[Rfam]
RNA sequence: GCUGGGAGUAUUCAUCCUCCUGUAACCAAAGAGCUGGGUGAUGCAGCAUUGCUGACUGCUUUAAGUCCUGCAGAGCAUGUUGAUAGUCCACCCUUGCCAAGCAAGUAAUCUGCAAGGGAUAGACAGUGUAAGCUGUCCAUUCCUGGCAGGUAAUGACCUGGAUACGGGCUCAGGCUGGCAACAGAGCAGGCCAAACUAGGCUCUACUUGCAGUGGCAGGAUACUGGAUUAGAAUGUAAUGCAGAGACCUCUGAUGCACUGAGGCUGUGCUACUGCAUCCAU
Numbered sequence: 001g002c003u004g005g006g007a008g009u010a011u012u013c014a015u016c017c018u019c020c021u022g023u024a025a026c027c028a029a030a031g032a033g034c035u036g037g038g039u040g041a042u043g044c045a046g047c048a049u050u051g052c053u054g055a056c057u058g059c060u061u062u063a064a065g066u067c068c069u070g071c072a073g074a075g076c077a078u079g080u081u082g083a084u085a086g087u088c089c090a091c092c093c094u095u096g097c098c099a100a101g102c103a104a105g106u107a108a109u110c111u112g113c114a115a116g117g118g119a120u121a122g123a124c125a126g127u128g129u130a131a132g133c134u135g136u137c138c139a140u141u142c143c144u145g146g147c148a149g150g151u152a153a154u155g156a157c158c159u160g161g162a163u164a165c166g167g168g169c170u171c172a173g174g175c176u177g178g179c180a181a182c183a184g185a186g187c188a189g190g191c192c193a194a195a196c197u198a199g200g201c202u203c204u205a206c207u208u209g210c211a212g213u214g215g216c217a218g219g220a221u222a223c224u225g226g227a228u229u230a231g232a233a234u235g236u237a238a239u240g241c242a243g244a245g246a247c248c249u250c251u252g253a254u255g256c257a258c259u260g261a262g263g264c265u266g267u268g269c270u271a272c273u274g275c276a277u278c279c280a281u
Stems, first nucleotide, its partner, number of pairs: 001034003004021005010015001036279005043272001045270001047268003051264003055259001057257003061253003065249001068243005075236004080231001084230007092219002095217005101210007110149004115144006122137006150154001157200005167192004175184003

The record is a 281-nucleotide RNA sequence from Polarella glacialis, which matches "Metazoan signal recognition particle RNA" in Rfam. Its Rfam clan is "SRP clan". A search with the family's covariance model found it, with a score of 117 bits. Its family is annotated with SRP-dependent cotranslational protein targeting to membrane, signal sequence recognition and signal recognition particle, endoplasmic reticulum targeting in the Gene Ontology. The source organism's lineage runs through Eukaryota, Sar, Alveolata, Dinophyceae and Polarella. Rfam's curators write: The signal recognition particle (SRP) is a universally conserved ribonucleoprotein. It is involved in the co-translational targeting of proteins to membranes. The eukaryotic SRP consists of a 300-nucleotide 7S RNA and six proteins: SRPs 72, 68, 54, 19, 14, and 9.